Transposase-2 RNA: a 67-nucleotide RNA from Frankia canadensis.
[Rfam]
RNA sequence: GAAACAGGAACCGGGCACGGCCACGGCCGGUCAGACCCGGGGUGCCCCACCAUUAGGUGAGGCGGCA
Numbered sequence: 001g002a003a004a005c006a007g008g009a010a011c012c013g014g015g016c017a018c019g020g021c022c023a024c025g026g027c028c029g030g031u032c033a034g035a036c037c038c039g040g041g042g043u044g045c046c047c048c049a050c051c052a053u054u055a056g057g058u059g060a061g062g063c064g065g066c067a
Stems, first nucleotide, its partner, number of pairs: 011040005018029004044063003048059004

Description
Rfam classes the family as a small RNA. The family's consensus secondary structure is taken from published work. Rfam 15.1 lists 214 matches to the family in 110 species.